[Rfam]
RNA: Small nucleolar RNA J33
Organism: Erythranthe guttata
RNA sequence: CAGUCAGAGGAAUGAUGUAUUACAGGAAAGCUCUAAAGUUACAAGCUUUUCUUGACAUGGCUG
Numbered sequence: 001c002a003g004u005c006a007g008a009g010g011a012a013u014g015a016u017g018u019a020u021u022a023c024a025g026g027a028a029a030g031c032u033c034u035a036a037a038g039u040u041a042c043a044a045g046c047u048u049u050u051c052u053u054g055a056c057a058u059g060g061c062u063g
Base pairs, nucleotide, nucleotide: 001063002062003061004060005059006058